[Rfam]
RNA: RNase MRP
Organism: Tripterygium wilfordii
RNA sequence: CGACCACGAGCUGGUGUGAUUGGGCCGCUAUCCUGUCAUUUGAUAGGACUGGCCCAGGAAAGUCCCCGGGCCUCUUACUGCAGAGAUGCAGGCUCGGAAACGAGUAAUCUUCGAGCUAGAUGUUCGUUUUAUGGGCUGAGACGAGUGUGGAGCCCGAAUGUCCAUCGAGGAACCUUGGUCGAUUGAUACAGUCAUUCACACAGCCCAGUCUACUGGGCCAACUGAACGGGGCUUACAGACUUGCGGUC
Numbered sequence: 001c002g003a004c005c006a007c008g009a010g011c012u013g014g015u016g017u018g019a020u021u022g023g024g025c026c027g028c029u030a031u032c033c034u035g036u037c038a039u040u041u042g043a044u045a046g047g048a049c050u051g052g053c054c055c056a057g058g059a060a061a062g063u064c065c066c067c068g069g070g071c072c073u074c075u076u077a078c079u080g081c082a083g084a085g086a087u088g089c090a091g092g093c094u095c096g097g098a099a100a101c102g103a104g105u106a107a108u109c110u111u112c113g114a115g116c117u118a119g120a121u122g123u124u125c126g127u128u129u130u131a132u133g134g135g136c137u138g139a140g141a142c143g144a145g146u147g148u149g150g151a152g153c154c155c156g157a158a159u160g161u162c163c164a165u166c167g168a169g170g171a172a173c174c175u176u177g178g179u180c181g182a183u184u185g186a187u188a189c190a191g192u193c194a195u196u197c198a199c200a201c202a203g204c205c206c207a208g209u210c211u212a213c214u215g216g217g218c219c220a221a222c223u224g225a226a227c228g229g230g231g232c233u234u235a236c237a238g239a240c241u242u243g244c245g246g247u248c
Stems, first nucleotide, its partner, number of pairs: 002248004007243004014201006022055004032047006060234003064231004079090004091117008119173001121171001123169004128164001130160003133155004143148001203218006